Rfam assigns this 121-nucleotide RNA sequence from Ophiophagus hannah to the family "U5 spliceosomal RNA". A search with the family's covariance model found it, with a score of 45 bits.

RNA sequence: GUGCUCUGGUUUUUCUUCUCAGAUCGUGUAAAUAUUUCACUUGUUACUAAAUAUUUCCAUAGAGAGGAACAUUUGAGUUUGUAACUAAUUUUUUGAGGCUCUUAUUGUCAUCUGAUGAGAG
Numbered sequence: 001g002u003g004c005u006c007u008g009g010u011u012u013u014u015c016u017u018c019u020c021a022g023a024u025c026g027u028g029u030a031a032a033u034a035u036u037u038c039a040c041u042u043g044u045u046a047c048u049a050a051a052u053a054u055u056u057c058c059a060u061a062g063a064g065a066g067g068a069a070c071a072u073u074u075g076a077g078u079u080u081g082u083a084a085c086u087a088a089u090u091u092u093u094u095g096a097g098g099c100u101c102u103u104a105u106u107g108u109c110a111u112c113u114g115a116u117g118a119g120a121g
Stems, first nucleotide, its partner, number of pairs: 003078004009070009030056008099121009